[Rfam]
RNA sequence: CGGCUCUUCCUAUCAUUGCGAAGCAAAAUUCGCCAAGCGUUGGAUUGUUCACCCAUCAAAAGGGAACGUGAGCUGGGUUUAGACCGUCGUGAGACAGGUUAGUU
Numbered sequence: 001c002g003g004c005u006c007u008u009c010c011u012a013u014c015a016u017u018g019c020g021a022a023g024c025a026a027a028a029u030u031c032g033c034c035a036a037g038c039g040u041u042g043g044a045u046u047g048u049u050c051a052c053c054c055a056u057c058a059a060a061a062g063g064g065a066a067c068g069u070g071a072g073c074u075g076g077g078u079u080u081a082g083a084c085c086g087u088c089g090u091g092a093g094a095c096a097g098g099u100u101a102g103u104u
Stems, first nucleotide, its partner, number of pairs: 001076001002074004006068001007065005014039001018033005041055003045051001082100004086095003
Dot-bracket structure: (((((((((((..(...(((((......))))).....).(((.(.....).))).....)))))..)..)))).).....(((((((....))).))))....

The record is a 104-nucleotide part of an RNA from Samia ricini, which matches "Eukaryotic large subunit ribosomal RNA" in Rfam.
The base pairs follow the family's consensus structure, which is taken from published work.
The source organism's lineage runs through Eukaryota, Insecta, Neolepidoptera, Saturniidae and Samia.